A member of the RNA family "mir-9242 microRNA precursor family" from Myotis myotis, 64 nucleotides long. The base pairs follow the family's consensus structure, which was predicted with RNAalifold. A search with the family's covariance model found it, with a score of 63 bits.

RNA sequence: GGCCUCCCUCUGCGGAGCCAUUGAUCACGGAGCCCCACGAUCGAUUGCCCUGCAGAGGGAGGCC
Numbered sequence: 001g002g003c004c005u006c007c008c009u010c011u012g013c014g015g016a017g018c019c020a021u022u023g024a025u026c027a028c029g030g031a032g033c034c035c036c037a038c039g040a041u042c043g044a045u046u047g048c049c050c051u052g053c054a055g056a057g058g059g060a061g062g063c064c
Stems, first nucleotide, its partner, number of pairs: 001064015017048002020045007029036002